[Rfam]
RNA sequence: AGCCUGUGAUGACAAUCUAAACAAACUUUUCUGACACCUACUAUGAGAGCUGAACUCCAGCUCCUGAUUCCAACCUUCACCUGAGGCUG
Numbered sequence: 001a002g003c004c005u006g007u008g009a010u011g012a013c014a015a016u017c018u019a020a021a022c023a024a025a026c027u028u029u030u031c032u033g034a035c036a037c038c039u040a041c042u043a044u045g046a047g048a049g050c051u052g053a054a055c056u057c058c059a060g061c062u063c064c065u066g067a068u069u070c071c072a073a074c075c076u077u078c079a080c081c082u083g084a085g086g087c088u089g
Stems, first nucleotide, its partner, number of pairs: 001088004049061004
Dot-bracket structure: ((((............................................((((.....)))).......................)))).
The family of this 89-nucleotide RNA from Oryzias latipes is "Small nucleolar RNA SNORD60". For this family Rfam cites "Purified box C/D snoRNPs are able to reproduce site-specific 2'-O-methylation of target RNA in vitro" (Galardi et al., Mol Cell Biol, 2002). Its family is annotated with nucleolus and RNA processing in the Gene Ontology. The family's consensus secondary structure was predicted with PFOLD.